[Rfam]
Rfam assigns this 128-nucleotide sequence from Otolemur garnettii to the family "Small nucleolar RNA SNORA30/SNORA37 family". Rfam classes the family as an H/ACA-box small nucleolar RNA. Rfam's curators write: The members of this family belong to the H/ACA class of snoRNAs that guide the sites of modification of uridines to pseudouridines. This family includes human ACA30 (SNORA30), ACA37 (SNORA37) and the mouse homolog MBI-26. Both ACA37 and ACA30 are predicted to guide the pseudouridylation of residue U4643 of 28S rRNA. Its family is annotated with RNA processing and nucleolus in the Gene Ontology. The match comes from Rfam's covariance-model search (106 bits). A reference for the family is Huttenhofer et al. (2001), "RNomics: an experimental approach that identifies 201 candidates for novel, small, non-messenger RNAs in mouse", EMBO J.
Nucleotides: 128
Stems, first nucleotide, its partner, number of pairs: 003058001005056001007054002013046003017042004022036003069122002071119004077113001079112002083108005088102004
Number, partner (000 for none) and nucleotide at each position: 001000c002000u003058a004000c005056c006000a007054c008053u009000u010000c011000c012000a013046c014045a015044g016000g017042u018041c019040c020039u021000c022036c023035c024034u025000g026000a027000g028000g029000c030000a031000g032000u033000g034024a035023g036022g037000c038000u039020a040019g041018g042017a043000u044015u045014u046013g047000g048000u049000a050000g051000c052000u053008g054007g055000a056005g057000c058003u059000g060000a061000g062000a063000g064000a065000a066000g067000a068000c069122c070121c071119u072118u073117g074116a075000u076000g077113g078000c079112a080111u081000c082000u083108u084107u085106g086105c087104c088102c089101u090100g091099g092000g093000a094000c095000u096000c097000u098000g099091c100090c101089a102088g103000u104087g105086g106085c107084a108083a109000c110000u111080a112079u113077c114000a115000c116074u117073c118072a119071a120000g121070g122069g123000g124000c125000a126000g127000a128000g